c-di-GMP-I riboswitch aptamer: a 94-nucleotide RNA sequence from Saccharophagus degradans. It scores 57 bits against the family's covariance model. The source organism's lineage runs through Bacteria, Pseudomonadati, Cellvibrionaceae, Saccharophagus and Saccharophagus degradans. Rfam links the family to the GO term cyclic-di-GMP binding.

[Rfam]
RNA sequence: CACUCUAAAUGGCUAACCGUCGCGAAAGCGCGGCCACGCAAAGCUUCCGGUCUAAGGGUAUGUAAACCAUAUCUACGAUAGCGGGGUUGCUGGA
Numbered sequence: 001c002a003c004u005c006u007a008a009a010u011g012g013c014u015a016a017c018c019g020u021c022g023c024g025a026a027a028g029c030g031c032g033g034c035c036a037c038g039c040a041a042a043g044c045u046u047c048c049g050g051u052c053u054a055a056g057g058g059u060a061u062g063u064a065a066a067c068c069a070u071a072u073c074u075a076c077g078a079u080a081g082c083g084g085g086g087u088u089g090c091u092g093g094a
Stems, first nucleotide, its partner, number of pairs: 012039002017033004022029002042088004047084003050079003057073006